[Rfam]
RNA sequence: ACGAUGUUCCGCUGUAAUGAAAGCUUAUUUAUAAGAGCAUCUG
Numbered sequence: 001a002c003g004a005u006g007u008u009c010c011g012c013u014g015u016a017a018u019g020a021a022a023g024c025u026u027a028u029u030u031a032u033a034a035g036a037g038c039a040u041c042u043g
Stems, first nucleotide, its partner, number of pairs: 003041007013033005
Ribosomal protein L19 leader: a 43-nucleotide sequence from Guptibacillus hwajinpoensis.
By type it is a cis-regulatory leader.
The match comes from Rfam's covariance-model search (44 bits).
Lineage of the source: Bacteria > Bacillati > Bacillota > Bacilli > Guptibacillus.
Rfam's curators write: This family is a putative r-protein leader autoregulatory structure found in B. subtilis and other low-GC Gram-positive bacteria.
The base pairs follow the family's consensus structure, which was predicted with CMfinder.
Its family is annotated with regulation of gene expression in the Gene Ontology.